Annotation
Shown here is a 184-nucleotide sequence from Crocosphaera watsonii, a member of the family "6S / SsrS RNA". On this family, see Wassarman and Storz, Cell 2000: "6S RNA regulates E. coli RNA polymerase activity". Rfam's curators put it in the seed alignment. The source organism's lineage runs through Bacteria, Cyanophyceae, Aphanothecaceae, Crocosphaera and Crocosphaera watsonii. From the family's description: E. coli 6S RNA was the first non coding RNA to be sequenced, but its function was unknown until recently. It consists of 184 nucleotides that fold into an extended hairpin structure with a large single-stranded internal bulge. The 6S RNA specifically associates with RNA polymerase holoenzyme containing the sigma70 specificity factor. This interaction represses expression from a sigma70-dependent promoter during stationary phase. 6S RNA homologs have recently been identified in most bacterial genomes. Many Gram-positive species have two copies of 6S RNA. In Bacillus subtilis, both copies appear to interact with RNA polymerase holoenzyme containing the housekeeping sigma factor and be expressed during different stages of growth. In many proteobacteria, 6S RNA may be processed from a transcript encoding homologs of the E. coli YgfA protein which is a putative 5-formyltetrahydrofolate cycloligase activity.

RNA sequence: GGAAAGCUGCUGUGUUGGUGACUGCCAAUAAAGUUUUUUGAUCUAUGCUUUGAGUUUAAGGGCGUUAACCAGCUAUCGUGGUAGUAAACCGAGCUUGUACUCGGAAACAGAAACGAUAAGCGGUCGAUACCCACCUGGUUCUUCCAGGUCAUAAACUGAGGUAAAACGGCACGGCGGUUUUUCA
Dot-bracket structure: .((((((((((((((..((...............(((.((((.................(((.(((.((..(((((((.....((...(((((......)))))..)).....)))).))).)).))).)))...............)))).)))..........)).))))))))))))))..